[Rfam]
This 122-nucleotide sequence from Megalops atlanticus belongs to the Rfam family "Small nucleolar RNA SNORA49". Rfam links the family to the GO terms RNA processing and nucleolus. It scores 49 bits against the family's covariance model. Taxonomically the source falls in Megalops (Eukaryota, Craniata, Teleostomi, Actinopterygii). About the family: The snoRNA ACA49 has no identified RNA target. NB genomic sequence 1-nt different from published.
RNA sequence: AUUGCCCUCCCUUACUCCAGGACCCGUGGGUUAGUGCGGUGUCCUGGCAUUGACUGGGCAUACAGCAGAGCCGCUCUCCUGCUGUGCUCACCUGUGGCAGCACUGUGCCCUGGGGGGACAUU
Numbered sequence: 001a002u003u004g005c006c007c008u009c010c011c012u013u014a015c016u017c018c019a020g021g022a023c024c025c026g027u028g029g030g031u032u033a034g035u036g037c038g039g040u041g042u043c044c045u046g047g048c049a050u051u052g053a054c055u056g057g058g059c060a061u062a063c064a065g066c067a068g069a070g071c072c073g074c075u076c077u078c079c080u081g082c083u084g085u086g087c088u089c090a091c092c093u094g095u096g097g098c099a100g101c102a103c104u105g106u107g108c109c110c111u112g113g114g115g116g117g118a119c120a121u122u
Stems, first nucleotide, its partner, number of pairs: 003060005011052001017047006024039004071113002080102006087096001089094001